Rfam assigns this 127-nucleotide RNA sequence from Pusillibacter faecalis to the family "FMN riboswitch aptamer (RFN element)".
Rfam links the family to the GO term FMN binding.
The match comes from Rfam's covariance-model search (115 bits).
The base pairs follow the family's consensus structure, which is taken from published work.
RNA sequence: CUUUGUCUUCAGGGCGGGGUGCAAGUCCCCACUGGCGGUAAAGUCCGCGACCGGCUGAUGGGUUAUCAGCCGCUGACCUGGUGAAACUCCGGGACCAACAGUAUAGUCUGGAUGGAAGAAGAUGAUU
Numbered sequence: 001c002u003u004u005g006u007c008u009u010c011a012g013g014g015c016g017g018g019g020u021g022c023a024a025g026u027c028c029c030c031a032c033u034g035g036c037g038g039u040a041a042a043g044u045c046c047g048c049g050a051c052c053g054g055c056u057g058a059u060g061g062g063u064u065a066u067c068a069g070c071c072g073c074u075g076a077c078c079u080g081g082u083g084a085a086a087c088u089c090c091g092g093g094a095c096c097a098a099c100a101g102u103a104u105a106g107u108c109u110g111g112a113u114g115g116a117a118g119a120a121g122a123u124g125a126u127u
Base pairs, nucleotide, nucleotide: 003125004124005123006122007121008120009119010118017029018028019027031107032106033097034096035048036047037046038045043095044094052072053071077093078092079091080090081089099110100109101108
Dot-bracket structure: ..((((((((......(((.......))).[[((((((....[[))))...((.................))....(((((.......)))))]])).(((....]]))).......))))))))..
The organism belongs to Pusillibacter, within Bacteria.